The family of this 102-nucleotide RNA is "Termite-flg RNA".

RNA sequence: AAUCGUUUUGUUCUGUUUGCGGAUUAUCAGAGCGGCGGCGCGAAACCGUCUCUUGUAAGCCGCAUCCGCGGAACAGCCUCGGCAAGGAUAGCCGGGGUAAGC
Numbered sequence: 001a002a003u004c005g006u007u008u009u010g011u012u013c014u015g016u017u018u019g020c021g022g023a024u025u026a027u028c029a030g031a032g033c034g035g036c037g038g039c040g041c042g043a044a045a046c047c048g049u050c051u052c053u054u055g056u057a058a059g060c061c062g063c064a065u066c067c068g069c070g071g072a073a074c075a076g077c078c079u080c081g082g083c084a085a086g087g088a089u090a091g092c093c094g095g096g097g098u099a100a101g102c
Stems, first nucleotide, its partner, number of pairs: 009075008019063004029053004033048003076098008
By type it is a cis-regulatory element. It is one of the family's seed sequences. The base pairs follow the family's consensus structure, which is taken from published work.